About this RNA: The family of this 163-nucleotide RNA from Rotaria magnacalcarata is "U1 spliceosomal RNA". The organism belongs to Rotaria, within Eukaryota. Rfam classes the family as a spliceosomal small nuclear RNA. Its family is annotated with mRNA 5'-splice site recognition, pre-mRNA 5'-splice site binding and U1 snRNP in the Gene Ontology. U1 is a small nuclear RNA (snRNA) component of the spliceosome (involved in pre-mRNA splicing).
RNA sequence: AUACUUACCUGCCACAGGAACUUCCUUGAUCAUCAAUAAGGAAGUCUCUGGUUGAGGCUCUACCAUUGCACAUUGGUAGCGCUGAAGCUAGCGAGAGGUUCAAAUAGGAUCUCCUCGAGUGGAUCAUUUUUCCCGCUGGGUUGAGCGUUCGCGCUCGAUCCUU
Dot-bracket structure: ...........((((.(((...(((((..........)))))..))).((((...(((.(((((..........))))).)))...)))).((((((.((.......)).))).))).))))...............(((((.((((....)))).)))))..